[Rfam]
RNA sequence: ACCUGCAUUCACAAGGGGUUGAGGUCUCACCCAUGACUCGGUCGUUGACAAUGCAGGGAGAGGACCUCCAAAAAUGUUUGGUGGGUUCGAUCCCGUCCCUCCCAAACCCUGUAGCUUUCAGGCA
Numbered sequence: 001a002c003c004u005g006c007a008u009u010c011a012c013a014a015g016g017g018g019u020u021g022a023g024g025u026c027u028c029a030c031c032c033a034u035g036a037c038u039c040g041g042u043c044g045u046u047g048a049c050a051a052u053g054c055a056g057g058g059a060g061a062g063g064a065c066c067u068c069c070a071a072a073a074a075u076g077u078u079u080g081g082u083g084g085g086u087u088c089g090a091u092c093c094c095g096u097c098c099c100u101c102c103c104a105a106a107c108c109c110u111g112u113a114g115c116u117u118u119c120a121g122g123c124a
Stems, first nucleotide, its partner, number of pairs: 002057008014046002017043005023038004068121001072118003076107005081101001083099003

Rfam assigns this 124-nucleotide RNA from Pelecanus crispus to the family "Small nucleolar RNA SNORA71". Rfam 15.1 lists 1,805 matches to the family in 606 species. The family's consensus secondary structure was predicted with PFOLD. Rfam's curators write: The members of this family belong to the H/ACA class of snoRNAs which bind a number of proteins (including dyskerin, Gar1p and Nop10p) to form snoRNP complexes. This class of snoRNAs are thought to guide the sites of modification of uridines to pseudouridines by forming direct base pairing interactions with substrate RNAs. This family includes U71 (SNORA71), ACA39 (SNORA39) and ACA60 (SNORA60). U71 and ACA60 are predicted to guide the pseudouridylation of U406 and U1004 in 18S rRNA respectively. The match comes from Rfam's covariance-model search (71 bits). The literature on the family includes a 1997 paper in Genes Dev by Ganot et al., "The family of box ACA small nucleolar RNAs is defined by an evolutionarily conserved secondary structure and ubiquitous sequence elements essential for RNA accumulation". Lineage of the source: Eukaryota > Eumetazoa > Vertebrata > Pelecanidae > Pelecanus. It is annotated as an H/ACA-box small nucleolar RNA. Gene Ontology terms of the family: nucleolus and RNA processing.